RNA sequence: AUUACGAACGGAGGCGCAACUGAAAAGAGUAACAUAUCUGAGCUUGAGGAAGCUAUGAAGAUAUGUGAAAGGUAAAGUUGCCGAAGGAAAGAGAAACUCAAAACUCUUUUCUGGGAGUACAGAUAAUACCUGUACUACUGUCACGUUUUACGUGGAGAGCCGUCAAAAUG
Numbered sequence: 001a002u003u004a005c006g007a008a009c010g011g012a013g014g015c016g017c018a019a020c021u022g023a024a025a026a027g028a029g030u031a032a033c034a035u036a037u038c039u040g041a042g043c044u045u046g047a048g049g050a051a052g053c054u055a056u057g058a059a060g061a062u063a064u065g066u067g068a069a070a071g072g073u074a075a076a077g078u079u080g081c082c083g084a085a086g087g088a089a090a091g092a093g094a095a096a097c098u099c100a101a102a103a104c105u106c107u108u109u110u111c112u113g114g115g116a117g118u119a120c121a122g123a124u125a126a127u128a129c130c131u132g133u134a135c136u137a138c139u140g141u142c143a144c145g146u147u148u149u150a151c152g153u154g155g156a157g158a159g160c161c162g163u164c165a166a167a168a169u170g
Stems, first nucleotide, its partner, number of pairs: 008163004016081006024073001032066008085112009113139002116136007141155005